RNA sequence: CGACUGGUCCCAUUCCCGGCUGGAGUCGACCAGUGCCUCGUGGCCGAAAAACGAGCCGUUCGCGAGCACCCGCAGCACGGUCUCGUCACCGAAUUCGCCCUGGCCGAUCUCGUUGAGCUUGCCGUGCGCGACCAGGUAGACGCGGUCGACCGGCUGGCCCGCCUCGACGAUCACGUCGCCGGGCCGGUACUCCCGCUGCUCGAACCGUCCGGCCAGCGCCGACAGCACCUCCUCGUCGUCGAAGCCGCGCAGCGCCGGCAGUUCGCCCAGCUCACGCGGGAUGACCUGGAUGUCGGCGCCGGUGUUGACGAACGUGACGCGCCCGUCCCCGACCGUGUAGGUCAGCCGCCGGUUGACGCGGUACGCGCCGCCGGACGCCUGCACCCACGGCAGGAGUUUCAGCAGCCAACGGGAGGAGAUGCCUUGCAUCUGGGGAACGGACUUGGUCGUCGUCGCGAGAUUGCGCGCCGCGGCCGUACCGAGGCUCAGCUGCUGCUCAGUCACGAUCCA
Numbered sequence: 001c002g003a004c005u006g007g008u009c010c011c012a013u014u015c016c017c018g019g020c021u022g023g024a025g026u027c028g029a030c031c032a033g034u035g036c037c038u039c040g041u042g043g044c045c046g047a048a049a050a051a052c053g054a055g056c057c058g059u060u061c062g063c064g065a066g067c068a069c070c071c072g073c074a075g076c077a078c079g080g081u082c083u084c085g086u087c088a089c090c091g092a093a094u095u096c097g098c099c100c101u102g103g104c105c106g107a108u109c110u111c112g113u114u115g116a117g118c119u120u121g122c123c124g125u126g127c128g129c130g131a132c133c134a135g136g137u138a139g140a141c142g143c144g145g146u147c148g149a150c151c152g153g154c155u156g157g158c159c160c161g162c163c164u165c166g167a168c169g170a171u172c173a174c175g176u177c178g179c180c181g182g183g184c185c186g187g188u189a190c191u192c193c194c195g196c197u198g199c200u201c202g203a204a205c206c207g208u209c210c211g212g213c214c215a216g217c218g219c220c221g222a223c224a225g226c227a228c229c230u231c232c233u234c235g236u237c238g239u240c241g242a243a244g245c246c247g248c249g250c251a252g253c254g255c256c257g258g259c260a261g262u263u264c265g266c267c268c269a270g271c272u273c274a275c276g277c278g279g280g281a282u283g284a285c286c287u288g289g290a291u292g293u294c295g296g297c298g299c300c301g302g303u304g305u306u307g308a309c310g311a312a313c314g315u316g317a318c319g320c321g322c323c324c325g326u327c328c329c330c331g332a333c334c335g336u337g338u339a340g341g342u343c344a345g346c347c348g349c350c351g352g353u354u355g356a357c358g359c360g361g362u363a364c365g366c367g368c369c370g371c372c373g374g375a376c377g378c379c380u381g382c383a384c385c386c387a388c389g390g391c392a393g394g395a396g397u398u399u400c401a402g403c404a405g406c407c408a409a410c411g412g413g414a415g416g417a418g419a420u421g422c423c424u425u426g427c428a429u430c431u432g433g434g435g436a437a438c439g440g441a442c443u444u445g446g447u448c449g450u451c452g453u454c455g456c457g458a459g460a461u462u463g464c465g466c467g468c469c470g471c472g473g474c475c476g477u478a479c480c481g482a483g484g485c486u487c488a489g490c491u492g493c494u495g496c497u498c499a500g501u502c503a504c505g506a507u508c509c510a
Base pairs, nucleotide, nucleotide: 006385007384008383010381014377018323019322021317023315025313026311027310031307032306033305034304035303036302037301040300043297044296045295046294047293052225056221058219059218060106062104063103074095075094078091079090080089081088112217113216114215115214118211121208122207124205125204126201128199129198130197135192138191139190148184150182151181152180153179154178155173156172160169161168230290231289232288235285236284237283238282239281240280246276247275249273251272252271253270256265257264324337325336326335346374347373348372350370351369352368357365358364386426387425389423390422391421392420398413399412400411402410432471434469435468438465439464441462443459444458446456447455472509473508475505476504477503479500481498482497483496
Dot-bracket structure: .....(((.(...(...((.(.(.(((...(((((((..(..(((((....(...(.(((.((..........((..((((......))))..)).......)).).....((((..(..((.(((.(((....(..((........(.(((((((...((......))..))....))))).).....)))....))).)..)).))..)..)))))).)...)....(((..((((((.....((.(.(((..((......))....)))).))...))))))..)))..)))))..))))))))..)).).).)....))(((........)))........(((.(((....((.....))..))).)))..)...).)))((.((((.....(((.(.......))))......)))).)).....(.((..((.(.((.((.......)).))..).))..)).)((.(((.(.(((............))).)..)))..)).

The record is a 510-nucleotide RNA sequence from Actinomadura rudentiformis, which matches "Saccharopolyspora sRNA 350" in Rfam. A reference for the family is Liu et al. (2013), "Prediction and characterization of small non-coding RNAs related to secondary metabolites in Saccharopolyspora erythraea", PLoS One. Gene Ontology term of the family: regulation of secondary metabolite biosynthetic process. The source organism's lineage runs through Bacteria, Bacillati, Actinomycetota, Actinomycetes and Actinomadura. The family's consensus secondary structure was predicted with RNAfold.